[Rfam]
RNA sequence: AUAGAGGCAAUGACUGAAGAAGUAUCUGUAUUCUAACCUACCAGAGAGACGAUGGCCGGUGCAAAUCGUCAGGCAGAACCAGAGAAAGCUGCUCACGAGCCUGCCGGGCCCAAUAAGCCCUGCCGUUUGCCGCGUUAAGGCCUCGAGUGGAUUCCUUUGCGAAUCCGAUUAAGGUGGUACCACGGGAAUAAGCCCUCGUCCUUUUA
Number, nucleotide and partner (000 for none) at each position: 001a000002u000003a000004g000005a000006g000007g100008c099009a000010a000011u000012g000013a000014c000015u095016g094017a093018a000019g000020a000021a000022g000023u000024a000025u083026c082027u081028g080029u000030a000031u000032u000033c000034u000035a000036a000037c073038c072039u071040a000041c000042c000043a000044g000045a000046g000047a000048g070049a069050c068051g067052a066053u065054g000055g000056c000057c000058g000059g000060u000061g000062c000063a000064a000065a053066u052067c051068g050069u049070c048071a039072g038073g037074c000075a000076g000077a000078a000079c000080c028081a027082g026083a025084g000085a000086a000087a000088g000089c000090u000091g000092c000093u017094c016095a015096c000097g000098a000099g008100c007101c000102u000103g123104c122105c000106g120107g119108g118109c117110c000111c000112a000113a000114u000115a000116a000117g109118c108119c107120c106121u000122g104123c103124c134125g133126u132127u000128u000129g000130c000131c000132g126133c125134g124135u000136u000137a000138a000139g000140g000141c000142c000143u000144c000145g000146a000147g000148u000149g000150g165151a164152u163153u162154c161155c000156u000157u000158u000159g000160c000161g154162a153163a152164u151165c150166c000167g000168a000169u000170u000171a203172a202173g201174g200175u000176g000177g000178u000179a000180c000181c000182a199183c198184g197185g196186g195187a000188a000189u000190a000191a000192g000193c000194c000195c186196u185197c184198g183199u182200c174201c173202u172203u171204u000205u000206a000
The family of this 206-nucleotide RNA from Pseudoselenomonas ruminis is "T-box leader".
It scores 111 bits against the family's covariance model.
Taxonomically the source falls in Pseudoselenomonas (Bacteria, Bacillota, Negativicutes, Selenomonadales).
From the family's description: Uncharged tRNA acts as the effector for transcription antitermination of genes in the T-box leader family. T-boxes are found upstream of many aminoacyl-tRNA synthetase genes and some amino acid biosynthetic genes usually in Gram-positive bacteria. The anticodon of a specific tRNA base pairs to a specifier sequence within the T-box motif, and the NCCA acceptor tail of the tRNA base pairs to a conserved bulge in the T-box antiterminator hairpin.
The base pairs follow the family's consensus structure, which is taken from published work.